Shown here is a 114-nucleotide RNA from Mesitornis unicolor, a member of the family "Small nucleolar RNA SNORD90". The family's RNA type in Rfam is C/D-box small nucleolar RNA. From the family's description: snoRNA HBII-295 belongs to the family of C/D snoRNAs. It is the human orthologue of the mouse MBII-295 and has no identified RNA target. For this family Rfam cites "RNomics: an experimental approach that identifies 201 candidates for novel, small, non-messenger RNAs in mouse" (Huttenhofer et al., EMBO J, 2001).
RNA sequence: AACUUCCUUUUUGGUGUCUGAUGAUGAAGCUGCAUAGGGCAGAUUCUGAGCUGAGAAAUGAAAUUUCUCUCCACUGAUACUCUCUGUAUGCCAUCUGAAGACACUACAUAUUUC
Numbered sequence: 001a002a003c004u005u006c007c008u009u010u011u012u013g014g015u016g017u018c019u020g021a022u023g024a025u026g027a028a029g030c031u032g033c034a035u036a037g038g039g040c041a042g043a044u045u046c047u048g049a050g051c052u053g054a055g056a057a058a059u060g061a062a063a064u065u066u067c068u069c070u071c072c073a074c075u076g077a078u079a080c081u082c083u084c085u086g087u088a089u090g091c092c093a094u095c096u097g098a099a100g101a102c103a104c105u106a107c108a109u110a111u112u113u114c
Base pairs, nucleotide, nucleotide: 012106013105014104015103016102017101018100019099029094032091033090034089035088037083038082039081042078045077046076048074050072053069054068055067056066057065